[Rfam]
Rfam assigns this 132-nucleotide RNA sequence from Octodon degus to the family "Small nucleolar RNA SNORA38". The organism belongs to Octodon, within Eukaryota. Its family is annotated with RNA processing, nucleolus and Cajal body in the Gene Ontology. ACA38 is a member of the H/ACA class of snoRNA that guide the sites of modification of uridines to pseudouridines.
RNA sequence: ACCUCCUACAAACGUGUGUCUUGGGUUCCUUGUCUUUGGAUGCAUAAGAAUUGGAGGCAGAAAAAAUUGUGGAUUUGGUGACAUCUGGGCCAGCUUGCUCCUUGCAGGCUCCAGAUCAACCAUCUCACAUAA
Numbered sequence: 001a002c003c004u005c006c007u008a009c010a011a012a013c014g015u016g017u018g019u020c021u022u023g024g025g026u027u028c029c030u031u032g033u034c035u036u037u038g039g040a041u042g043c044a045u046a047a048g049a050a051u052u053g054g055a056g057g058c059a060g061a062a063a064a065a066a067u068u069g070u071g072g073a074u075u076u077g078g079u080g081a082c083a084u085c086u087g088g089g090c091c092a093g094c095u096u097g098c099u100c101c102u103u104g105c106a107g108g109c110u111c112c113a114g115a116u117c118a119a120c121c122a123u124c125u126c127a128c129a130u131a132a
Stems, first nucleotide, its partner, number of pairs: 002057005015044007024030002071125003075122001092110007